A member of the RNA family "skipping-rope RNA", 84 nucleotides long. Pairs were carried over by alignment from the consensus structure, which is taken from published work. Rfam classes the family as a small RNA.
RNA sequence: GCUUCUUGAGGUGGUCAAUUGCGGCAACCACACACCUAUUUAUAGGGAUAAGAGAUCCAAGGACAGCCGGACUUGGCAAGAGGC
Numbered sequence: 001g002c003u004u005c006u007u008g009a010g011g012u013g014g015u016c017a018a019u020u021g022c023g024g025c026a027a028c029c030a031c032a033c034a035c036c037u038a039u040u041u042a043u044a045g046g047g048a049u050a051a052g053a054g055a056u057c058c059a060a061g062g063a064c065a066g067c068c069g070g071a072c073u074u075g076g077c078a079a080g081a082g083g084c
Base pairs, nucleotide, nucleotide: 001084002083003082004081005080006079007078008077011031012030013029014028015027022069023068024067025066033052035046036045037044038043057076058075059074060073061072